Description:
The record is a 150-nucleotide RNA from Saccharata proteae, which matches "Small nucleolar RNA snR80" in Rfam. Its family is annotated with nucleolus and RNA processing in the Gene Ontology. Taxonomically the source falls in Saccharata proteae (Eukaryota, saccharomyceta, Dothideomycetes, Saccharata). A search with the family's covariance model found it, with a score of 50 bits. On this family, see Schattner et al., Nucleic Acids Res 2004: "Genome-wide searching for pseudouridylation guide snoRNAs: analysis of the Saccharomyces cerevisiae genome". By type it is an H/ACA-box small nucleolar RNA. Pairs were carried over by alignment from the consensus structure, which was predicted with WAR.

[Rfam]
RNA sequence: AAUCCGUUACCAACACUCUGGCCCUAGUCUGCUUUUCCGUGUCUUAGGCCUAUUUUGGUGUAACGGAGAGGAACUAUUGGCCUACUACUCACCGCGGUACCUUGUCCCUCGGGACUCGUGGGUACAGUGGUCCAUUUUUUUGGUCUACAU
Number, nucleotide and partner (000 for none) at each position: 001a000002a000003u000004c000005c000006g000007u063008u062009a061010c000011c000012a000013a000014c000015a000016c000017u000018c000019u000020g050021g049022c048023c047024c000025u000026a044027g043028u000029c041030u000031g000032c000033u000034u000035u000036u000037c000038c000039g000040u000041g029042u000043c027044u026045u000046a000047g023048g022049c021050c020051u000052a000053u000054u000055u000056u000057g000058g000059u000060g000061u009062a008063a007064c000065g000066g000067a000068g000069a000070g000071g000072a000073a000074c000075u000076a000077u000078u000079g145080g144081c143082c142083u000084a000085c000086u000087a000088c000089u000090c000091a000092c130093c129094g128095c127096g000097g125098u124099a123100c122101c121102u120103u000104g000105u000106c000107c000108c000109u000110c000111g000112g000113g000114a000115c000116u000117c000118g000119u000120g102121g101122g100123u099124a098125c097126a000127g095128u094129g093130g092131u000132c000133c000134a000135u000136u000137u000138u000139u000140u000141u000142g082143g081144u080145c079146u000147a000148c000149a000150u000